[Rfam]
RNA sequence: CCAACAGACCGCCUUAUCGCUGUUUUGAGCAAUCAAGAGAGAGGAAAGUCCGGACACCAUAGAGAAGCAUAGCGGGUAACACCCGUCGGUUUCAAUGUAUUGAAAUUAGGACAAGUGCAACAGAAAGUAUGUACAGGUAAUGCUGUAGUGAAACCAGGUAAACUCUAUGCGGUGAAAUAUCAAGUAUAUCAGCAUUUAAAAGCUUCUCGUUUGUUGCUGAAGGGUAGAUAGUUGGAGUCUCAGAGUAAUUUGAGACCUAGAUAAAUGAUAAGGGUUUGCUUUUGCAAAUACAGAAUCCGGCUUAUAGGUCUGUUUUUUUU
Numbered sequence: 001c002c003a004a005c006a007g008a009c010c011g012c013c014u015u016a017u018c019g020c021u022g023u024u025u026u027g028a029g030c031a032a033u034c035a036a037g038a039g040a041g042a043g044g045a046a047a048g049u050c051c052g053g054a055c056a057c058c059a060u061a062g063a064g065a066a067g068c069a070u071a072g073c074g075g076g077u078a079a080c081a082c083c084c085g086u087c088g089g090u091u092u093c094a095a096u097g098u099a100u101u102g103a104a105a106u107u108a109g110g111a112c113a114a115g116u117g118c119a120a121c122a123g124a125a126a127g128u129a130u131g132u133a134c135a136g137g138u139a140a141u142g143c144u145g146u147a148g149u150g151a152a153a154c155c156a157g158g159u160a161a162a163c164u165c166u167a168u169g170c171g172g173u174g175a176a177a178u179a180u181c182a183a184g185u186a187u188a189u190c191a192g193c194a195u196u197u198a199a200a201a202g203c204u205u206c207u208c209g210u211u212u213g214u215u216g217c218u219g220a221a222g223g224g225u226a227g228a229u230a231g232u233u234g235g236a237g238u239c240u241c242a243g244a245g246u247a248a249u250u251u252g253a254g255a256c257c258u259a260g261a262u263a264a265a266u267g268a269u270a271a272g273g274g275u276u277u278g279c280u281u282u283u284g285c286a287a288a289u290a291c292a293g294a295a296u297c298c299g300g301c302u303u304a305u306a307g308g309u310c311u312g313u314u315u316u317u318u319u320u
Stems, first nucleotide, its partner, number of pairs: 003314008011305001012273007020041002023038006046303003050300005055174004062208004067170005072086005087109001088107008110165002115163002117159002132147005178230004189220005200212004237256008
Annotation: Rfam assigns this 320-nucleotide RNA from Flavobacterium crassostreae to the family "Bacterial RNase P class A". A search with the family's covariance model found it, with a score of 201 bits. Rfam describes the family as follows. Ribonuclease P (RNase P) is a ubiquitous endoribonuclease, found in archaea, bacteria and eukarya as well as chloroplasts and mitochondria. Its best characterised activity is the generation of mature 5'-ends of tRNAs by cleaving the 5'-leader elements of precursor-tRNAs. Cellular RNase Ps are ribonucleoproteins. RNA from bacterial RNase Ps retains its catalytic activity in the absence of the protein subunit, i.e. it is a ribozyme. The source organism's lineage runs through Bacteria, Flavobacteriia, Flavobacteriales, Flavobacteriaceae and Flavobacterium. Rfam classes the family as a ribozyme.